Overview
The record is a 266-nucleotide part of an RNA from Krasilnikoviella flava, which matches "Bacterial large subunit ribosomal RNA" in Rfam. The source organism's lineage runs through Bacteria, Bacillati, Actinomycetota, Promicromonosporaceae and Krasilnikoviella. Rfam links the family to the GO terms ribosome and structural constituent of ribosome. Pairs were carried over by alignment from the consensus structure, which is taken from published work.
RNA sequence: GGAAACUUGAGAAGGGCUGUCCCUAGUACGAGAGGACCGGGACGGACGAACCUCUGGUGUGCCAGUUGUUCCGCCAGGAGCACGGCUGGUUAGCUACGUUCGGAAGGGAUAACCGCUGAAAGCAUCUAAGCGGGAAGCCUGCUUCAAGAUGAGGUUUCCAUCCCCGCAAGGGGUGAAGGCACCCAGCUAGACCACUGGGUAGAUAGGCCGGAUGUGGAAGACAGGACUCAAGACUGUCGGAGCUGACCGGUACUAAUAAGCCAACA
Dot-bracket structure: ((((((((..((((..(((((((...............))))))).(((((...(((....(((((((((((....))))))..)))))....))).)))))...(((....(((((...........)))))....))).))))......))))))))..(((......)))....(((.(((((........)))))....((((((((..(.....(((((.........)))))....)...))))).)))....)))....
Numbered sequence: 001g002g003a004a005a006c007u008u009g010a011g012a013a014g015g016g017c018u019g020u021c022c023c024u025a026g027u028a029c030g031a032g033a034g035g036a037c038c039g040g041g042a043c044g045g046a047c048g049a050a051c052c053u054c055u056g057g058u059g060u061g062c063c064a065g066u067u068g069u070u071c072c073g074c075c076a077g078g079a080g081c082a083c084g085g086c087u088g089g090u091u092a093g094c095u096a097c098g099u100u101c102g103g104a105a106g107g108g109a110u111a112a113c114c115g116c117u118g119a120a121a122g123c124a125u126c127u128a129a130g131c132g133g134g135a136a137g138c139c140u141g142c143u144u145c146a147a148g149a150u151g152a153g154g155u156u157u158c159c160a161u162c163c164c165c166g167c168a169a170g171g172g173g174u175g176a177a178g179g180c181a182c183c184c185a186g187c188u189a190g191a192c193c194a195c196u197g198g199g200u201a202g203a204u205a206g207g208c209c210g211g212a213u214g215u216g217g218a219a220g221a222c223a224g225g226a227c228u229c230a231a232g233a234c235u236g237u238c239g240g241a242g243c244u245g246a247c248c249g250g251u252a253c254u255a256a257u258a259a260g261c262c263a264a265c266a
Stems, first nucleotide, its partner, number of pairs: 001159008011145004017045007047102005055096003062089005067082006106140003113133005162173003178262003182199005204255003207251005214243001220238005